[Rfam]
RNA sequence: GUGCAGACCUUUCCAGCGAGGCUCAGCCUGCCGUGGCUCUGUCCUUUCCUGUAGUGUCUGCUAGAGAGACGUGAGGCUGUUUGAGGCCCUGCUGUGGCCCCUCGCUGCAGGGUUAUAGGAAAACCUCAGACACGU
Numbered sequence: 001g002u003g004c005a006g007a008c009c010u011u012u013c014c015a016g017c018g019a020g021g022c023u024c025a026g027c028c029u030g031c032c033g034u035g036g037c038u039c040u041g042u043c044c045u046u047u048c049c050u051g052u053a054g055u056g057u058c059u060g061c062u063a064g065a066g067a068g069a070c071g072u073g074a075g076g077c078u079g080u081u082u083g084a085g086g087c088c089c090u091g092c093u094g095u096g097g098c099c100c101c102u103c104g105c106u107g108c109a110g111g112g113u114u115a116u117a118g119g120a121a122a123a124c125c126u127c128a129g130a131c132a133c134g135u
Base pairs, nucleotide, nucleotide: 003061004060005059006058007057008056019045020044021043025038026037027036028035072128073127074126075125076124087112088111089110090109091108092107094105095104096103
Dot-bracket structure: ..((((((..........(((...((((......))))....)))..........))))))..........(((((..........((((((.(((......))).))))))...........))))).......